[Rfam]
RNA sequence: UUGGUUUAAAUCAUUAUGGAUCUACACUUUGAAAAUUGAACUAACAUAAAGUAGUAAGACAUACAUUGAUUCCACCCAA
Numbered sequence: 001u002u003g004g005u006u007u008a009a010a011u012c013a014u015u016a017u018g019g020a021u022c023u024a025c026a027c028u029u030u031g032a033a034a035a036u037u038g039a040a041c042u043a044a045c046a047u048a049a050a051g052u053a054g055u056a057a058g059a060c061a062u063a064c065a066u067u068g069a070u071u072c073c074a075c076c077c078a079a
Base pairs, nucleotide, nucleotide: 001079002078003077004076006074009071010070011069012068013067015065017063018062023056024055026052027051028050029049030048031047
Shown here is a 79-nucleotide RNA sequence from Medicago truncatula, a member of the family "MIR5269 microRNA precursor family".
Gene Ontology terms of the family: miRNA-mediated post-transcriptional gene silencing and RISC complex.
A search with the family's covariance model found it, with a score of 63 bits.
The family's consensus secondary structure was predicted with RNAalifold.